The family of this 172-nucleotide RNA sequence from Keratinibaculum paraultunense is "Group II catalytic intron D1-D4-3". It scores 119 bits against the family's covariance model. Rfam's curators write: Group II introns are found in rRNA, tRNA and mRNA of organelles in fungi, plants and protists, and also in mRNA in bacteria. Its family is annotated with Group II intron splicing in the Gene Ontology.
Nucleotides: 172
Base pairs, nucleotide, nucleotide: 001016002015003014004013005012006011028172031169032168035163040157041156042155043154045151046150047149048148049147061146062145063144064143065142066141073138074137075136078133079132080131081130082129084112085111086110087109090105091104092103093102
Number, partner (000 for none) and nucleotide at each position: 001016u002015g003014u004013a005012u006011c007000g008000u009000g010000a011006g012005a013004u014003a015002c016001a017000g018000a019000c020000g021000a022000g023000a024000a025000g026000a027000a028172g029000g030000g031169a032168u033000a034000g035163c036000a037000a038000a039000a040157u041156u042155g043154u044000a045151g046150c047149c048148u049147g050000a051000c052000g053000a054000a055000c056000a057000g058000a059000a060000a061146c062145c063144u064143a065142a066141u067000a068000c069000c070000a071000a072000g073138g074137c075136u076000u077000a078133c079132a080131u081130g082129g083000u084112g085111g086110a087109u088000a089000a090105g091104c092103g093102g094000g095000c096000u097000g098000a099000a100000a101000g102093u103092c104091g105090u106000g107000a108000a109087g110086u111085c112084c113000a114000a115000a116000a117000g118000g119000c120000a121000a122000u123000c124000g125000u126000a127000a128000c129082c130081c131080a132079u133078g134000a135000a136075a137074g138073u139000a140000a141066a142065u143064u144063a145062g146061g147049c148048a149047g150046g151045u152000a153000g154043a155042c156041a157040a158000g159000g160000a161000a162000a163035g164000a165000u166000u167000g168032a169031u170000g171000g172028c